[Rfam]
RNA sequence: UACCUAGUUAAUUUUAUUAAUAAUUAUAUACUUAUCUUAAAGAUUAAGCUAUAUAUAUAUAAGUAUAAGUAAUUAUACUAUAAAAUUAUAAAUAGCUUAUUAAAUUAGUUAUUAUUUAUUUAAUAAUACUUUACUACUUAGAUAACUGUGGUAAUUUUAGAGCUAAUAUAUACUAAAAACCCUAACUUUAGAAAGAAUAUAUUUAUUAAAUAAAAAACCAAUACCUUUUAGGGCUCUUUAGUGAUUUAUAAUAACUUAAUAAAUUAUAUAGCUUUAUACUAGCAACAGUUUAUUUAAAUUUCUAUUCUAUUAACUUUUAAUAGUAAAGUAUUAACUUACUAUAGUUUUAAUAAAUAAUAGAGAAUUAGAGUUUAACUUUAGAGAGAGAGUUUAAGAAAUAGUUAUUAUAUCUAAAAAAAACAGCAAGCGCGCAAAUUACCUAAUUCUAAUAUAAAAAAAUAAUAAUAAUAAAUACUAAUAUAAAGCUCUUUUAGGUUUUGUAAUUAGAAUAAGUAUAAUUUAAACCUCUUAAUAAGAAAUAAUUAGAGAGUAAGUUUGGUACUAGUAGUUACAAUAAUUCCAGCUCUAAUAGCAUAUAUU
Numbered sequence: 001u002a003c004c005u006a007g008u009u010a011a012u013u014u015u016a017u018u019a020a021u022a023a024u025u026a027u028a029u030a031c032u033u034a035u036c037u038u039a040a041a042g043a044u045u046a047a048g049c050u051a052u053a054u055a056u057a058u059a060u061a062a063g064u065a066u067a068a069g070u071a072a073u074u075a076u077a078c079u080a081u082a083a084a085a086u087u088a089u090a091a092a093u094a095g096c097u098u099a100u101u102a103a104a105u106u107a108g109u110u111a112u113u114a115u116u117u118a119u120u121u122a123a124u125a126a127u128a129c130u131u132u133a134c135u136a137c138u139u140a141g142a143u144a145a146c147u148g149u150g151g152u153a154a155u156u157u158u159a160g161a162g163c164u165a166a167u168a169u170a171u172a173c174u175a176a177a178a179a180c181c182c183u184a185a186c187u188u189u190a191g192a193a194a195g196a197a198u199a200u201a202u203u204u205a206u207u208a209a210a211u212a213a214a215a216a217a218c219c220a221a222u223a224c225c226u227u228u229u230a231g232g233g234c235u236c237u238u239u240a241g242u243g244a245u246u247u248a249u250a251a252u253a254a255c256u257u258a259a260u261a262a263a264u265u266a267u268a269u270a271g272c273u274u275u276a277u278a279c280u281a282g283c284a285a286c287a288g289u290u291u292a293u294u295u296a297a298a299u300u301u302c303u304a305u306u307c308u309a310u311u312a313a314c315u316u317u318u319a320a321u322a323g324u325a326a327a328g329u330a331u332u333a334a335c336u337u338a339c340u341a342u343a344g345u346u347u348u349a350a351u352a353a354a355u356a357a358u359a360g361a362g363a364a365u366u367a368g369a370g371u372u373u374a375a376c377u378u379u380a381g382a383g384a385g386a387g388a389g390u391u392u393a394a395g396a397a398a399u400a401g402u403u404a405u406u407a408u409a410u411c412u413a414a415a416a417a418a419a420a421c422a423g424c425a426a427g428c429g430c431g432c433a434a435a436u437u438a439c440c441u442a443a444u445u446c447u448a449a450u451a452u453a454a455a456a457a458a459a460u461a462a463u464a465a466u467a468a469u470a471a472a473u474a475c476u477a478a479u480a481u482a483a484a485g486c487u488c489u490u491u492u493a494g495g496u497u498u499u500g501u502a503a504u505u506a507g508a509a510u511a512a513g514u515a516u517a518a519u520u521u522a523a524a525c526c527u528c529u530u531a532a533u534a535a536g537a538a539a540u541a542a543u544u545a546g547a548g549a550g551u552a553a554g555u556u557u558g559g560u561a562c563u564a565g566u567a568g569u570u571a572c573a574a575u576a577a578u579u580c581c582a583g584c585u586c587u588a589a590u591a592g593c594a595u596a597u598a599u600u
Stems, first nucleotide, its partner, number of pairs: 005019004022600003026597004031592002035470001037468003041463001042430001048428003052425001054423001057089002062087003069081002096383003106304003111299002115297002121292003139170002146162002149159003179198001182195002186191001203254006217242002220239001224233003264285002267282001269281003306354001308352001313345003320342007358380004362373004385406002388403003408419001410417001436461001438460001444456002447453002476506003479502009513533002515530001517529001543589006556583004565572002

A member of the RNA family "Eukaryotic small subunit ribosomal RNA" from Zopfia rhizophila, 600 nucleotides of a longer RNA. NCBI's taxonomy places the organism under Eukaryota, Dikarya, Pezizomycotina, Dothideomycetes, Zopfia rhizophila. It scores 387 bits against the family's covariance model. The base pairs follow the family's consensus structure, which is taken from published work. The literature on the family includes a 2001 paper in Science by Yusupov et al., "Crystal structure of the ribosome at 5.5 A resolution".